[Rfam]
RNA sequence: GUGGGAGUGGCCUAUUUUAGCAUGCAAGCUAAUUGGGCCAAAGUCAUC
Numbered sequence: 001g002u003g004g005g006a007g008u009g010g011c012c013u014a015u016u017u018u019a020g021c022a023u024g025c026a027a028g029c030u031a032a033u034u035g036g037g038c039c040a041a042a043g044u045c046a047u048c
Base pairs, nucleotide, nucleotide: 008041010038011037012036013035014034018031019030020029021028
RNA: Hepatitis C virus stem-loop SL1412 RNA